[Rfam]
RNA sequence: ACGUAUUCUCAGGGCGGGGUGGAAUUCCCCACCGGCGGUAUCCCGGGCAACCGGGGAGCCCGCGAGCGCCUCUGCCGUCGUGGCGGAGGGUCGAGCAGAUCUGGUGCGACGCCAGAGCCGACGGUUACAGUCCGGAUGGAAGAGGAUAACG
Numbered sequence: 001a002c003g004u005a006u007u008c009u010c011a012g013g014g015c016g017g018g019g020u021g022g023a024a025u026u027c028c029c030c031a032c033c034g035g036c037g038g039u040a041u042c043c044c045g046g047g048c049a050a051c052c053g054g055g056g057a058g059c060c061c062g063c064g065a066g067c068g069c070c071u072c073u074g075c076c077g078u079c080g081u082g083g084c085g086g087a088g089g090g091u092c093g094a095g096c097a098g099a100u101c102u103g104g105u106g107c108g109a110c111g112c113c114a115g116a117g118c119c120g121a122c123g124g125u126u127a128c129a130g131u132c133c134g135g136a137u138g139g140a141a142g143a144g145g146a147u148a149a150c151g
Stems, first nucleotide, its partner, number of pairs: 004148007017029003031131002033120002035063004058118002066096002100116005122134003
The family of this 151-nucleotide RNA from Oceanidesulfovibrio indonesiensis is "FMN riboswitch aptamer (RFN element)".
Pairs were carried over by alignment from the consensus structure, which is taken from published work.
NCBI's taxonomy places the organism under Bacteria, Pseudomonadati, Desulfovibrionia, Desulfovibrionales, Oceanidesulfovibrio.
Rfam links the family to the GO term FMN binding.